[Rfam]
RNA sequence: GUAGCCCGGGUAAGCGAAGCGCACCCGGGAAUGCAUCAGCCCGAUCCCGGGUGCGCUUCGCUUACCCGGGCUAC
Dot-bracket structure: ((((((.(((((((.(((((.((((((((.((((....))...)))))))))).))))).))))))).))))))
This 74-nucleotide RNA sequence from Marilutibacter alkalisoli belongs to the Rfam family "mir-2290 microRNA precursor family". Lineage of the source: Bacteria > Pseudomonadati > Pseudomonadota > Lysobacterales > Marilutibacter. Rfam 15.1 lists 30 matches to the family in 28 species. A search with the family's covariance model found it, with a score of 50 bits. The family's consensus secondary structure was predicted with RNAalifold.